[Rfam]
Nucleotides: 143
Stems, first nucleotide, its partner, number of pairs: 002061005015048004021041005075135003080131002083128001084126002091121005
Number, partner (000 for none) and nucleotide at each position: 001000u002061g003060g004059a005058g006057g007000a008000c009000u010000g011000a012000g013000a014000a015048g016047g017046u018045g019000a020000g021041g022040u023039a024038g025037c026000u027000u028000u029000a030000u031000a032000a033000c034000u035000g036000u037025g038024c039023u040022g041021c042000a043000c044000u045018u046017g047016c048015u049000g050000g051000u052000a053000g054000u055000g056000a057006c058005c059004u060003c061002c062000c063000a064000a065000a066000u067000u068000a069000a070000a071000g072000u073000a074000a075135u076134a077133c078000a079000g080131c081130a082000g083128u084126g085125u086000a087000u088000u089000c090000u091121g092120u093119g094118c095117u096000g097000c098000a099000g100000c101000a102000c103000u104000u105000c106000a107000u108000u109000g110000u111000u112000g113000c114000u115000a116000a117095a118094g119093c120092a121091c122000c123000u124000c125085a126084u127000u128083g129000c130081u131080g132000u133077g134076u135075a136000c137000a138000c139000u140000g141000u142000u143000u